[Rfam]
RNA sequence: CUUCAACGACCCCAGCCACAGCGGUGCGCUCUCCCCGCGAUUCUGCCCAUAGGUCGCCAACAGUGCCUGGGCCUC
Number, nucleotide and partner (000 for none) at each position: 001c000002u000003u000004c000005a000006a000007c000008g000009a000010c000011c000012c000013c000014a000015g025016c024017c023018a000019c000020a000021g000022c000023g017024g016025u015026g000027c000028g000029c000030u000031c071032u070033c069034c000035c000036c000037g000038c065039g064040a000041u000042u000043c000044u059045g058046c000047c056048c000049a054050u000051a000052g000053g000054u049055c000056g047057c000058c045059a044060a000061c000062a000063g000064u039065g038066c000067c000068u000069g033070g032071g031072c000073c000074u000075c000
The family of this 75-nucleotide RNA from Nocardia mangyaensis is "ASpks TB sRNA". A reference for the family is Arnvig and Young (2009), "Identification of small RNAs in Mycobacterium tuberculosis", Mol Microbiol. It scores 67 bits against the family's covariance model.